[Rfam]
RNA sequence: CGAGUUGGCCGGGCGACCGCGGCGCUCAGGUGUGCCUGGGUGUCGAGGAAAGUCCGGACUUCACAGAGCAGGGUGAUUGCUAACGGCAAUCCGAGGUGACUCGCGGGAAAGUGCCACAGAAAACAGACCGCCACUUGUCCCAUCGGGGCAGGGGGUAAGGGUGAAACGGUGCGGUAAGAGCGCACCAGCAUCCCGGGUGACCGGGGUGGCUAGGCAAACCCCACCCGAAGCAAGGCCAAGAAGGCCGCAACCUGGUUGCGGCUGCGCAAGCGUUCGAGGGCUGCUCGCCCGAGCUUGCGGGUAGGCCGCUUGAGGCACCCGGCGACGGUGUGUCCAGAUGGAUGGUCGCCGCCUCACUUGGUGAGGGACAGAAUCCGGCUUACAGGCCAGCUCGUCCG
Number, nucleotide and partner (000 for none) at each position: 001c394002g393003a392004g391005u390006u389007g388008g387009c386010c385011g383012g350013g349014c348015g347016a346017c345018c344019g000020c045021g044022g043023c042024g041025c040026u039027c038028a037029g000030g000031u000032g000033u000034g000035c000036c000037u028038g027039g026040g025041u024042g023043u022044c021045g020046a000047g000048g000049a000050a381051a380052g379053u000054c378055c377056g376057g375058a374059c230060u229061u228062c227063a000064c000065a000066g286067a285068g284069c283070a000071g226072g225073g224074u223075g222076a090077u089078u088079g087080c086081u000082a000083a000084c000085g000086g080087c079088a078089a077090u076091c105092c103093g102094a101095g100096g000097u000098g000099a000100c095101u094102c093103g092104c000105g091106g221107g220108a000109a000110a000111g219112u218113g215114c214115c213116a000117c000118a000119g000120a000121a000122a000123a000124c000125a000126g000127a000128c160129c159130g156131c155132c154133a000134c152135u151136u150137g149138u148139c147140c146141c000142a000143u000144c000145g000146g140147g139148g138149c137150a136151g135152g134153g000154g132155g131156u130157a000158a000159g129160g128161g000162u000163g000164a000165a000166a000167c000168g186169g185170u184171g183172c182173g181174g000175u000176a000177a000178g000179a000180g000181c173182g172183c171184a170185c169186c168187a000188g210189c208190a207191u206192c205193c204194c203195g202196g201197g000198u000199g000200a000201c196202c195203g194204g193205g192206g191207u190208g189209g000210c188211u000212a000213g115214g114215c113216a000217a000218a112219c111220c107221c106222c075223a074224c073225c072226c071227g062228a061229a060230g059231c000232a000233a000234g307235g306236c305237c304238a000239a000240g000241a000242a000243g000244g000245c000246c000247g000248c000249a000250a000251c000252c000253u000254g000255g000256u000257u000258g000259c000260g000261g000262c000263u000264g000265c000266g298267c297268a296269a295270g294271c293272g000273u000274u000275c000276g000277a000278g290279g289280g288281c287282u000283g069284c068285u067286c066287g281288c280289c279290c278291g000292a000293g271294c270295u269296u268297g267298c266299g000300g000301g000302u000303a000304g237305g236306c235307c234308g000309c000310u000311u000312g000313a000314g334315g333316c332317a331318c330319c328320c327321g326322g000323c000324g000325a000326c321327g320328g319329u000330g318331u317332g316333u315334c314335c000336a000337g000338a000339u000340g000341g000342a000343u000344g018345g017346u016347c015348g014349c013350c012351g000352c000353c000354u000355c000356a000357c000358u000359u000360g000361g000362u000363g000364a000365g000366g000367g000368a000369c000370a000371g000372a000373a000374u058375c057376c056377g055378g054379c052380u051381u050382a000383c011384a000385g010386g009387c008388c007389a006390g005391c004392u003393c002394g001395u000396c000397c000398g000
Overview
The record is a 398-nucleotide RNA from Mycolicibacterium cosmeticum, which matches "Bacterial RNase P class A" in Rfam. The organism belongs to Mycobacterium (subgen. Mycolicibacterium), within Bacteria. Rfam classes the family as a ribozyme.